[Rfam]
RNA sequence: UCGGUGACGUUCGGCGAGGUCUCCACCCGCCCGCCGGGUACCUGAUGCACCUUCCCCGGUGUCAGGUGCCACGAGACGCGGUCUGCGGAUGGGGACCUGGCCGGACGGGUCGGCUCUC
Numbered sequence: 001u002c003g004g005u006g007a008c009g010u011u012c013g014g015c016g017a018g019g020u021c022u023c024c025a026c027c028c029g030c031c032c033g034c035c036g037g038g039u040a041c042c043u044g045a046u047g048c049a050c051c052u053u054c055c056c057c058g059g060u061g062u063c064a065g066g067u068g069c070c071a072c073g074a075g076a077c078g079c080g081g082u083c084u085g086c087g088g089a090u091g092g093g094g095a096c097c098u099g100g101c102c103g104g105a106c107g108g109g110u111c112g113g114c115u116c117u118c
Base pairs, nucleotide, nucleotide: 010105011104012103013102014101015100018097019096021094022093023092024091025090027088028087029086030085031081032080033079034078036072037070038069039068040067041066042065043064044063045062046061047060048059
Shown here is a 118-nucleotide RNA from Herbidospora galbida, a member of the family "mraW RNA". Pairs were carried over by alignment from the consensus structure, which is taken from published work. The organism belongs to Herbidospora, within Bacteria. It is annotated as a cis-regulatory element.